[Rfam]
Overview
A member of the RNA family "Small nucleolar RNA SNORD10" from Cyprinodon variegatus, 140 nucleotides long.
RNA sequence: GUAUAAUGAUGAAAUCCAUGCGUGUCAACUGACUCCGUCAACCUCUGACGCCGAGCUGCUCUGGUUGGCGUUCUGCUAGCCGGCGCUGUCCCUGCGUCAGAAGAACGGAGACGUGAUCAGACUCCCAUGUUUCUGAUUAC
Numbered sequence: 001g002u003a004u005a006a007u008g009a010u011g012a013a014a015u016c017c018a019u020g021c022g023u024g025u026c027a028a029c030u031g032a033c034u035c036c037g038u039c040a041a042c043c044u045c046u047g048a049c050g051c052c053g054a055g056c057u058g059c060u061c062u063g064g065u066u067g068g069c070g071u072u073c074u075g076c077u078a079g080c081c082g083g084c085g086c087u088g089u090c091c092c093u094g095c096g097u098c099a100g101a102a103g104a105a106c107g108g109a110g111a112c113g114u115g116a117u118c119a120g121a122c123u124c125c126c127a128u129g130u131u132u133c134u135g136a137u138u139a140c
Stems, first nucleotide, its partner, number of pairs: 001140003044101008

Rfam links the family to the GO terms nucleolus and RNA processing. For this family Rfam cites "RNomics: an experimental approach that identifies 201 candidates for novel, small, non-messenger RNAs in mouse" (Huttenhofer et al., EMBO J, 2001). Rfam classes the family as a C/D-box small nucleolar RNA.